The family of this 72-nucleotide sequence is "RAGATH-18 RNA".
About the family: Actinobacteria, Firmicutes, Fusobacteria, Thermotogae (1 example).
RNA sequence: CCUAUGGAGAGUACAAAAAAUGUGAGUAGCGUCUGAUUAUUCAGCACAAAAACAUACUCAGCGAAGUAGGAA
Numbered sequence: 001c002c003u004a005u006g007g008a009g010a011g012u013a014c015a016a017a018a019a020a021u022g023u024g025a026g027u028a029g030c031g032u033c034u035g036a037u038u039a040u041u042c043a044g045c046a047c048a049a050a051a052a053c054a055u056a057c058u059c060a061g062c063g064a065a066g067u068a069g070g071a072a
Stems, first nucleotide, its partner, number of pairs: 001070005009059005021054003029047001031045001034043002

Record summary: The family's consensus secondary structure is taken from published work.